A member of the RNA family "SmY spliceosomal RNA" from Caenorhabditis japonica, 77 nucleotides long. Pairs were carried over by alignment from the consensus structure, which is taken from published work. A search with the family's covariance model found it, with a score of 64 bits. It is annotated as a spliceosomal small nuclear RNA. Rfam 15.1 lists 408 matches to the family in 67 species.

[Rfam]
Nucleotides: 077
Base pairs, nucleotide, nucleotide: 022039023038024037026035027034028033058076059075060074061073062072063071064070065069
Number, partner (000 for none) and nucleotide at each position: 001000g002000u003000c004000a005000a006000a007000u008000a009000a010000u011000a012000a013000u014000a015000a016000a017000u018000u019000g020000c021000a022039g023038a024037g025000c026035c027034u028033u029000g030000a031000a032000g033028a034027a035026g036000a037024c038023u039022c040000g041000a042000a043000g044000c045000a046000c047000a048000a049000u050000u051000u052000u053000u054000g055000c056000a057000a058076a059075c060074c061073c062072u063071g064070u065069u066000u067000c068000c069065a070064a071063c072062a073061g074060g075059g076058u077000a